[Rfam]
RNA: Repression of heat shock gene expression (ROSE) element
RNA sequence: GCCAAGGCCUUUUAGGGCUUGGGCAAGUCCGGCGCCGGCGGGUGUCCGGCGCGAUUAUGGUUACGUUGCUCAAUGGAGGAUGUAGCUAUGAGAG
Numbered sequence: 001g002c003c004a005a006g007g008c009c010u011u012u013u014a015g016g017g018c019u020u021g022g023g024c025a026a027g028u029c030c031g032g033c034g035c036c037g038g039c040g041g042g043u044g045u046c047c048g049g050c051g052c053g054a055u056u057a058u059g060g061u062u063a064c065g066u067u068g069c070u071c072a073a074u075g076g077a078g079g080a081u082g083u084a085g086c087u088a089u090g091a092g093a094g
Stems, first nucleotide, its partner, number of pairs: 002022005008017002030053001032052007055091005061085007069078003